[Rfam]
RNA sequence: AACCGCAGGGAACCGCUGCUGCUGAUAUAUUAUCCACCCAUCUUUGACAUUUCUAUAUCACAGUGGCUGUUCUUUUUGGUU
Numbered sequence: 001a002a003c004c005g006c007a008g009g010g011a012a013c014c015g016c017u018g019c020u021g022c023u024g025a026u027a028u029a030u031u032a033u034c035c036a037c038c039c040a041u042c043u044u045u046g047a048c049a050u051u052u053c054u055a056u057a058u059c060a061c062a063g064u065g066g067c068u069g070u071u072c073u074u075u076u077u078g079g080u081u
Stems, first nucleotide, its partner, number of pairs: 004078002007075007016066006023060002026057004
RNA: mir-6 microRNA precursor family